The family of this 56-nucleotide RNA sequence is "Na+ riboswitch aptamer (DUF1646)". Pairs were carried over by alignment from the consensus structure, which is taken from published work. Gene Ontology terms of the family: regulation of gene expression and sodium ion binding.
RNA sequence: GGUUGGACAGAUUGCAUCUGAUUCCAAGAGAUUUUUGGUUUCUGGGGUGGGAAACU
Number, nucleotide and partner (000 for none) at each position: 001g000002g000003u027004u026005g025006g022007a000008c020009a019010g018011a017012u000013u000014g000015c000016a000017u011018c010019u009020g008021a000022u006023u000024c000025c005026a004027a003028g000029a000030g000031a000032u000033u000034u000035u000036u000037g056038g055039u054040u053041u052042c051043u050044g000045g000046g000047g000048u000049g000050g043051g042052a041053a040054a039055c038056u037
Overview:
It is one of the family's seed sequences.